[Rfam]
Source information
ASpks TB sRNA: a 75-nucleotide sequence. The base pairs follow the family's consensus structure, which is taken from published work. Rfam classes the family as an antisense RNA. For this family Rfam cites "Identification of small RNAs in Mycobacterium tuberculosis" (Arnvig and Young, Mol Microbiol, 2009).
RNA sequence: CUUGGACGAGCCGAGCCACAACGGCUGGCCCUCGUCCCGCCCUUGGCCGUAGGUGGCGAGCAGCGCCUGCGCCUC
Numbered sequence: 001c002u003u004g005g006a007c008g009a010g011c012c013g014a015g016c017c018a019c020a021a022c023g024g025c026u027g028g029c030c031c032u033c034g035u036c037c038c039g040c041c042c043u044u045g046g047c048c049g050u051a052g053g054u055g056g057c058g059a060g061c062a063g064c065g066c067c068u069g070c071g072c073c074u075c
Base pairs, nucleotide, nucleotide: 014026015025016024017023031071033069038065039064043060044059047056048055049054